Small nucleolar RNA U3: a 213-nucleotide RNA from Hymenochirus boettgeri. The base pairs follow the family's consensus structure, which is taken from published work. The family has 87 seed sequences and 19,072 matches in Rfam 15.1. Gene Ontology terms of the family: RNA processing and nucleolus. Rfam describes the family as follows. Small nucleolar RNAs (snoRNAs) are involved in the processing and modification of rRNA in the nucleolus. There are two main classes of snoRNAs: the box C/D class, and the box H/ACA class. U3 snoRNA is a member of the box C/D class. The literature on the family includes a 1997 paper in Nucleic Acids Res by Zwieb, "The uRNA database".

RNA sequence: AAGACUAUACUUUCAGGGAUCAUUUCUAAAGUUUGCGAUGGUUGAAAUGUGCUUGAAAUGUUCAAACUCCCUUACCGCAAGGAUGCGAUUGAGUGUUCUCUUCUUUGCAAAAGGCAUGUGGGAAUGCUGUUUAGGUACAGGAGUUGUCUAUUGCUGAUGCUGUUCUUCUCUUUUUUUUAAAGAGUAGGAAGGAGAGAUUCCAAUCUGAGCGGC
Numbered sequence: 001a002a003g004a005c006u007a008u009a010c011u012u013u014c015a016g017g018g019a020u021c022a023u024u025u026c027u028a029a030a031g032u033u034u035g036c037g038a039u040g041g042u043u044g045a046a047a048u049g050u051g052c053u054u055g056a057a058a059u060g061u062u063c064a065a066a067c068u069c070c071c072u073u074a075c076c077g078c079a080a081g082g083a084u085g086c087g088a089u090u091g092a093g094u095g096u097u098c099u100c101u102u103c104u105u106u107g108c109a110a111a112a113g114g115c116a117u118g119u120g121g122g123a124a125u126g127c128u129g130u131u132u133a134g135g136u137a138c139a140g141g142a143g144u145u146g147u148c149u150a151u152u153g154c155u156g157a158u159g160c161u162g163u164u165c166u167u168c169u170c171u172u173u174u175u176u177u178u179a180a181a182g183a184g185u186a187g188g189a190a191g192g193a194g195a196g197a198u199u200c201c202a203a204u205c206u207g208a209g210c211g212g213c
Stems, first nucleotide, its partner, number of pairs: 003039001005037001006035002009032003015027004050064002075212004093201001095199001097197008107163003118151003123145003127140004166187002168184006
NCBI's taxonomy places the organism under Eukaryota, Deuterostomia, Dipnotetrapodomorpha, Pipidae, Hymenochirus.